[Rfam]
RNA: Burkholderia sRNA Bp1_Cand871_SIPHT
Organism: Paraburkholderia humisilvae
RNA sequence: UCGCCCACAAUGCCUCUCACGGGUUCAACACGGAUGUGGCUUGGUGUGCGGUGUGAGCGGACAUCUUUCAUCAAGCCGGUCGGCAAAUUGCCGGGUCCCUGAGAAGGGGCAUCCCUGUUGGAGUCGUGGUCGACGGCGAUAGCGUCGUUCCAGUCGAUUCCUCCUUUGGUCUCCUCGCGCUAACCCCGUAGCGUGUGGUUUUUAGCGGGCUCCAGGCCCGCUUUUUUUU
Numbered sequence: 001u002c003g004c005c006c007a008c009a010a011u012g013c014c015u016c017u018c019a020c021g022g023g024u025u026c027a028a029c030a031c032g033g034a035u036g037u038g039g040c041u042u043g044g045u046g047u048g049c050g051g052u053g054u055g056a057g058c059g060g061a062c063a064u065c066u067u068u069c070a071u072c073a074a075g076c077c078g079g080u081c082g083g084c085a086a087a088u089u090g091c092c093g094g095g096u097c098c099c100u101g102a103g104a105a106g107g108g109g110c111a112u113c114c115c116u117g118u119u120g121g122a123g124u125c126g127u128g129g130u131c132g133a134c135g136g137c138g139a140u141a142g143c144g145u146c147g148u149u150c151c152a153g154u155c156g157a158u159u160c161c162u163c164c165u166u167u168g169g170u171c172u173c174c175u176c177g178c179g180c181u182a183a184c185c186c187c188g189u190a191g192c193g194u195g196u197g198g199u200u201u202u203u204a205g206c207g208g209g210c211u212c213c214a215g216g217c218c219c220g221c222u223u224u225u226u227u228u229u
Stems, first nucleotide, its partner, number of pairs: 005169003018128005024122007032114006038077003042074001044071003048067001051064004080094005097108004130152001132150002173198002176195007204222008